[Rfam]
RNA sequence: AACUUAUGCCUCUAGGGUUCCGGUUUGGCUGGUUAGGCCAAGCGGCUGGUCCGAGAGAGGCGGGUUAGCGGUGCGAUGGUCAAAGACCGACCCCAAGGGGCGAUCGCUAAUUACACGGCGGGAUAAAAGCCCGGGAGAU
Numbered sequence: 001a002a003c004u005u006a007u008g009c010c011u012c013u014a015g016g017g018u019u020c021c022g023g024u025u026u027g028g029c030u031g032g033u034u035a036g037g038c039c040a041a042g043c044g045g046c047u048g049g050u051c052c053g054a055g056a057g058a059g060g061c062g063g064g065u066u067a068g069c070g071g072u073g074c075g076a077u078g079g080u081c082a083a084a085g086a087c088c089g090a091c092c093c094c095a096a097g098g099g100g101c102g103a104u105c106g107c108u109a110a111u112u113a114c115a116c117g118g119c120g121g122g123a124u125a126a127a128a129g130c131c132c133g134g135g136a137g138a139u
Base pairs, nucleotide, nucleotide: 007062008061009060010059011058012057015052016051020049021048022046023043024042025041026040027039028038029037030036063112064111065110066109067108068107069106070105071104072103114134116137120132121131122130
The family of this 139-nucleotide RNA from Nodosilinea sp. LEGE 07088 is "Guanidine-I riboswitch aptamer". NCBI's taxonomy places the organism under Bacteria, Cyanobacteriota, Cyanophyceae, Nodosilineales, Nodosilinea. The match comes from Rfam's covariance-model search (85 bits). This family represents a conserved RNA structure found upstream of the ykkC and yxkD genes in Bacillus subtilis and related genes in other bacteria. The function of this family is unclear although it has been suggested that it may function to switch on efflux pumps and detoxification systems in response to harmful environmental molecules.